[Rfam]
RNA: Nematode sRNA ceN72-3_ceN74-2
RNA sequence: CGCUUCGGUCCGGAGUUGAUGGGUUACCUAUAAUUGUUUCGUUUCCUGCUAGCAGGAGGCAAUCCCGGUUUCCUUGUGAAACCAAAAAUCGUUCUCUCGGGAACAAAACCUCUUCUCGUGUUCUGUUAAAGAAUACAAAAACCCCUUCCCAUCAACACCAACUUGACUGAAGU
Numbered sequence: 001c002g003c004u005u006c007g008g009u010c011c012g013g014a015g016u017u018g019a020u021g022g023g024u025u026a027c028c029u030a031u032a033a034u035u036g037u038u039u040c041g042u043u044u045c046c047u048g049c050u051a052g053c054a055g056g057a058g059g060c061a062a063u064c065c066c067g068g069u070u071u072c073c074u075u076g077u078g079a080a081a082c083c084a085a086a087a088a089u090c091g092u093u094c095u096c097u098c099g100g101g102a103a104c105a106a107a108a109c110c111u112c113u114u115c116u117c118g119u120g121u122u123c124u125g126u127u128a129a130a131g132a133a134u135a136c137a138a139a140a141a142c143c144c145c146u147u148c149c150c151a152u153c154a155a156c157a158c159c160a161a162c163u164u165g166a167c168u169g170a171a172g173u
Base pairs, nucleotide, nucleotide: 002173003172004171006169007168008167009166010165012159013158015156016155017154018153019152020151021150022149023148042059043058044057045056046055047054048053069081070080071079072078